[Rfam]
RNA sequence: UUAAGGUGCAUUGUGGUUGCAUUGCAUGUUUUUAAAGAGUGCAGUGUUUCUCCAGUGCAACUUAA
Number, nucleotide and partner (000 for none) at each position: 001u065002u064003a063004a062005g000006g061007u059008g058009c057010a056011u055012u054013g053014u000015g051016g050017u000018u000019g047020c000021a045022u044023u043024g042025c041026a040027u039028g000029u000030u000031u000032u000033u000034a000035a000036a000037g000038a000039g027040u026041g025042c024043a023044g022045u021046g000047u019048u000049u000050c016051u015052c000053c013054a012055g011056u010057g009058c008059a007060a000061c006062u004063u003064a002065a001
mir-33 microRNA precursor family: a 65-nucleotide RNA from Psylliodes chrysocephalus.
NCBI's taxonomy places the organism under Eukaryota, Metazoa, Dicondylia, Polyphaga, Psylliodes.
A reference for the family is Li et al. (2009), "Direct sequencing and expression analysis of a large number of miRNAs in Aedes aegypti and a multi-species survey of novel mosquito miRNAs", BMC Genomics.